[Rfam]
Nucleotides: 131
Stems, first nucleotide, its partner, number of pairs: 004037006015030005043072006050065006088126001090124008099116006
Number, partner (000 for none) and nucleotide at each position: 001000u002000u003000a004037u005036c006035c007034u008033u009032u010000a011000a012000u013000c014000c015030u016029a017028g018027u019026c020000c021000u022000g023000u024000g025000a026019g027018a028017c029016u030015a031000a032009g033008a034007a035006g036005g037004a038000g039000c040000a041000u042000a043072g044071u045070a046069a047068g048067a049000a050065a051064a052063g053062g054061u055060g056000a057000a058000c059000g060055u061054a062053c063052c064051u065050u066000c067048u068047c069046u070045u071044a072043u073000a074000u075000u076000u077000a078000c079000u080000c081000a082000a083000c084000a085000g086000u087000a088126a089000u090124a091123u092122g093121c094120c095119c096118u097117c098000u099116u100115u101114g102113a103112c104111c105000a106000u107000u108000a109000a110000a111104g112103g113102u114101u115100a116099g117097g118096a119095g120094g121093g122092c123091a124090u125000u126088u127000u128000u129000u130000a131000u